[Rfam]
The family of this 50-nucleotide RNA from Vibrio ordalii is "malK-II RNA".
RNA sequence: AUUCCUGCUGUCAUUGCCUGCAAGAAAACUCAUAUAAUGAUGGGCAGUGA
Numbered sequence: 001a002u003u004c005c006u007g008c009u010g011u012c013a014u015u016g017c018c019u020g021c022a023a024g025a026a027a028a029c030u031c032a033u034a035u036a037a038u039g040a041u042g043g044g045c046a047g048u049g050a
Stems, first nucleotide, its partner, number of pairs: 011050008
Rfam classes the family as a cis-regulatory element. NCBI's taxonomy places the organism under Bacteria, Pseudomonadota, Gammaproteobacteria, Vibrionales, Vibrio ordalii. Pairs were carried over by alignment from the consensus structure, which is taken from published work.